[Rfam]
Nucleotides: 086
Stems, first nucleotide, its partner, number of pairs: 012037002017032006040080004047076002049072003056066003
Number, partner (000 for none) and nucleotide at each position: 001000a002000a003000a004000c005000g006000a007000u008000a009000a010000u011000g012037g013036c014000a015000a016000a017032u018031c019030u020029a021028a022027u023000g024000a025000a026000a027022a028021u029020u030019a031018g032017a033000g034000a035000c036013g037012c038000a039000a040080a041079g042078c043077u044000a045000g046000a047076g048075g049072g050071c051070c052000u053000u054000c055000c056066u057065u058064c059000u060000c061000c062000a063000u064058g065057a066056a067000g068000a069000u070051g071050g072049c073000a074000g075048c076047c077043a078042g079041c080040u081000u082000c083000c084000g085000a086000a
The family of this 86-nucleotide RNA from Brevibacillus panacihumi is "c-di-GMP-I riboswitch aptamer".
The source organism's lineage runs through Bacteria, Bacilli, Caryophanales, Brevibacillus and Brevibacillus panacihumi.
A search with the family's covariance model found it, with a score of 72 bits.
Pairs were carried over by alignment from the consensus structure, which is taken from published work.